About this RNA: Selenocysteine transfer RNA: a 93-nucleotide sequence from Desulfobulbus oralis. A search with the family's covariance model found it, with a score of 71 bits. Rfam links the family to the GO term triplet codon-amino acid adaptor activity. Pairs were carried over by alignment from the consensus structure, which is taken from published work. The organism belongs to Desulfobulbus, within Bacteria.
RNA sequence: GGAAGUGGUCAGGGCACUGGUGGCUCUCCCGGACUUCAAAUCCGGUGUGCCGGUUGCAAAACCGGCAGGUGGGUUCGAUUCCCAUGCACUUCC
Numbered sequence: 001g002g003a004a005g006u007g008g009u010c011a012g013g014g015c016a017c018u019g020g021u022g023g024c025u026c027u028c029c030c031g032g033a034c035u036u037c038a039a040a041u042c043c044g045g046u047g048u049g050c051c052g053g054u055u056g057c058a059a060a061a062c063c064g065g066c067a068g069g070u071g072g073g074u075u076c077g078a079u080u081c082c083c084a085u086g087c088a089c090u091u092c093c
Stems, first nucleotide, its partner, number of pairs: 001093007011027005017022001028047001029045005049066005070084004